The record is an 83-nucleotide RNA from Apium graveolens, which matches "Small nucleolar RNA R16" in Rfam. The family has 18 seed sequences and 884 matches in Rfam 15.1. Rfam classes the family as a C/D-box small nucleolar RNA.
[Rfam]
RNA sequence: UUUGGCAUAUGAUGUUCAAUCUUAUCCUACACACUGAUUUUUCCGUGUUGAUAAUUACUCUCAAUUUUUUUUCUGAUGCCAUU
Number, nucleotide and partner (000 for none) at each position: 001u000002u000003u081004g080005g079006c078007a077008u000009a000010u000011g000012a000013u000014g000015u000016u000017c000018a000019a000020u000021c000022u000023u000024a000025u000026c000027c000028u000029a000030c000031a000032c000033a000034c000035u000036g000037a000038u000039u000040u000041u000042u000043c000044c000045g000046u000047g000048u000049u000050g000051a000052u000053a000054a000055u000056u000057a000058c000059u000060c000061u000062c000063a000064a000065u000066u000067u000068u000069u000070u000071u000072u000073c000074u000075g000076a000077u007078g006079c005080c004081a003082u000083u000

The base pairs follow the family's consensus structure, which was predicted with PFOLD. Gene Ontology terms of the family: nucleolus and RNA processing. The match comes from Rfam's covariance-model search (62 bits).